[Rfam]
RNA sequence: AUCCAAGCCAAACACUACUCUUAAGCUUCUUUUUCAAGGUUCUUUACCUACCACAUCUAUAUUCAUCAUGUCUCCUUGCACCUGCAACUGCUGCUCCGGCGAGUGCAACUCCUGCUCUUGUGCCAGCUGCAAGGUAAGUCAUUUGCU
Numbered sequence: 001a002u003c004c005a006a007g008c009c010a011a012a013c014a015c016u017a018c019u020c021u022u023a024a025g026c027u028u029c030u031u032u033u034u035c036a037a038g039g040u041u042c043u044u045u046a047c048c049u050a051c052c053a054c055a056u057c058u059a060u061a062u063u064c065a066u067c068a069u070g071u072c073u074c075c076u077u078g079c080a081c082c083u084g085c086a087a088c089u090g091c092u093g094c095u096c097c098g099g100c101g102a103g104u105g106c107a108a109c110u111c112c113u114g115c116u117c118u119u120g121u122g123c124c125a126g127c128u129g130c131a132a133g134g135u136a137a138g139u140c141a142u143u144u145g146c147u
Base pairs, nucleotide, nucleotide: 077101078100079099084094085093086092105130106129107128114121115120
This 147-nucleotide RNA from Penicillium fimorum belongs to the Rfam family "A. fumigatus sRNA Afu_254". Taxonomically the source falls in Penicillium (Eukaryota, Fungi, Dikarya, Eurotiales). It scores 77 bits against the family's covariance model. By type it is a small RNA. On this family, see Jochl et al., Nucleic Acids Res 2008: "Small ncRNA transcriptome analysis from Aspergillus fumigatus suggests a novel mechanism for regulation of protein synthesis".